[Rfam]
RNA sequence: UUGCACAGCAAGGGGAGCUUGCCGAUGGCAACAUCACAGCAGGCUGAGAGGGAGUUUGUGACUCCGACCCAUAACCUGAUUUGGAUAAUGCCAACGUAGGGACGAGCGGUGAAUGAUACGU
Numbered sequence: 001u002u003g004c005a006c007a008g009c010a011a012g013g014g015g016a017g018c019u020u021g022c023c024g025a026u027g028g029c030a031a032c033a034u035c036a037c038a039g040c041a042g043g044c045u046g047a048g049a050g051g052g053a054g055u056u057u058g059u060g061a062c063u064c065c066g067a068c069c070c071a072u073a074a075c076c077u078g079a080u081u082u083g084g085a086u087a088a089u090g091c092c093a094a095c096g097u098a099g100g101g102a103c104g105a106g107c108g109g110u111g112a113a114u115g116a117u118a119c120g121u
Base pairs, nucleotide, nucleotide: 006109008107009106012070013069014068017044018043019042020041021040051065052064053063054062055061075100076099077098078097081094082093083092084091
RNA: TPP riboswitch aptamer (THI element)